The record is a 78-nucleotide RNA from Trichonephila inaurata, which matches "Vault RNA" in Rfam. Lineage of the source: Eukaryota > Eumetazoa > Araneae > Orbiculariae > Trichonephila inaurata.

RNA sequence: ACGCAGGCCCUGCCUAGUGGUUACUUCGAGUUACAAAUGAAACACAAAUUCGCACUACAGGCGCAAACCUGCGUUUUU
Numbered sequence: 001a002c003g004c005a006g007g008c009c010c011u012g013c014c015u016a017g018u019g020g021u022u023a024c025u026u027c028g029a030g031u032u033a034c035a036a037a038u039g040a041a042a043c044a045c046a047a048a049u050u051c052g053c054a055c056u057a058c059a060g061g062c063g064c065a066a067a068c069c070u071g072c073g074u075u076u077u078u
Stems, first nucleotide, its partner, number of pairs: 002073006012062004017058004025054001027052006
This family of RNAs are found as part of the enigmatic vault ribonucleoprotein complex.